[Rfam]
RNA sequence: GCGAGAGUGGCGGAACUGGCAGACGCACCGGACUUAGGAUCCGGCGCCAAUGCGGCAUGGGGGUUCAACUCCCCCCUCUCGCA
Number, nucleotide and partner (000 for none) at each position: 001g082002c081003g080004a079005g078006a077007g076008u000009g000010g026011c025012g024013g000014a000015a000016c000017u000018g000019g000020c000021a000022g000023a000024c012025g011026c010027a000028c044029c043030g042031g041032a040033c000034u000035u000036a000037g000038g000039a000040u032041c031042c030043g029044g028045c000046g000047c000048c000049a000050a000051u000052g000053c000054g000055g000056c000057a000058u000059g075060g074061g073062g072063g071064u000065u000066c000067a000068a000069c000070u000071c063072c062073c061074c060075c059076c007077u006078c005079u004080c003081g002082c001083a000
The record is an 83-nucleotide RNA from Candidatus Desulfovibrio kirbyi, which matches "tRNA" in Rfam. About the family: Transfer RNA (tRNA) molecules are approximately 80 nucleotides in length.